[Rfam]
RNA sequence: GGCCGGAUAUGGCGCUCGUGCCGCAUCCGGCAAUCAAUGCCUGAUGCGACGCUGUCGCGUCUUAUCAGGCC
Number, nucleotide and partner (000 for none) at each position: 001g000002g031003c030004c029005g028006g027007a026008u025009a000010u000011g022012g021013c020014g019015c000016u000017c000018g000019u014020g013021c012022c011023g000024c000025a008026u007027c006028c005029g004030g003031c002032a000033a000034u000035c000036a000037a000038u000039g070040c069041c068042u067043g066044a065045u064046g063047c000048g061049a060050c059051g058052c057053u000054g000055u000056c000057g052058c051059g050060u049061c048062u000063u046064a045065u044066c043067a042068g041069g040070c039071c000
The record is a 71-nucleotide sequence from Escherichia coli, which matches "Nucleoid-associated noncoding RNA 4 (CssrE)" in Rfam. The match comes from Rfam's covariance-model search (71 bits). By type it is a small RNA. Rfam 15.1 lists 870 matches to the family in 32 species. About the family: In E. coli small RNA transcribed from repeated extragenic palindromic element (REP325) called nucleoid-associated ncRNA 4 (nRNA4) collaborates HU protein in condensing the DNA. The secondary structure but not the sequence of the RNA is important in nucleoid condensation.